[Rfam]
RNA sequence: CUAACAGUAUGAGAGCAUAACUGAAAACCUUGAGGAGAGGUUAUGUUUGAUGCAUGUUAG
Numbered sequence: 001c002u003a004a005c006a007g008u009a010u011g012a013g014a015g016c017a018u019a020a021c022u023g024a025a026a027a028c029c030u031u032g033a034g035g036a037g038a039g040g041u042u043a044u045g046u047u048u049g050a051u052g053c054a055u056g057u058u059a060g
Base pairs, nucleotide, nucleotide: 001060002059003058004057005056014047015046016045017044018043019042020041021040022039028035029034
RNA: Selenocysteine insertion sequence 1
Organism: Clarias magur